[Rfam]
RNA sequence: UAAGCAGAUGCCGAAAAGCUUUGAAUAGAGUAGGCA
Numbered sequence: 001u002a003a004g005c006a007g008a009u010g011c012c013g014a015a016a017a018g019c020u021u022u023g024a025a026u027a028g029a030g031u032a033g034g035c036a
Base pairs, nucleotide, nucleotide: 002021003020004019005018010035011034012033